[Rfam]
RNA sequence: UAUUGUAUGUGUGACUGGCGAAAUGUGGAAUACCACAGGGGAGCACAUACUUAUAUAGCCGUUCGCCUGGGCAAAGUAU
Numbered sequence: 001u002a003u004u005g006u007a008u009g010u011g012u013g014a015c016u017g018g019c020g021a022a023a024u025g026u027g028g029a030a031u032a033c034c035a036c037a038g039g040g041g042a043g044c045a046c047a048u049a050c051u052u053a054u055a056u057a058g059c060c061g062u063u064c065g066c067c068u069g070g071g072c073a074a075a076g077u078a079u
Stems, first nucleotide, its partner, number of pairs: 005050008015040002017067005025036004056074001058072003

The record is a 79-nucleotide RNA sequence from Bacillus solimangrovi, which matches "ZMP/ZTP riboswitch aptamer (pfl RNA motif)" in Rfam. Taxonomically the source falls in Bacillus (Bacteria, Bacillota, Bacilli, Caryophanales). The family's consensus secondary structure is taken from published work.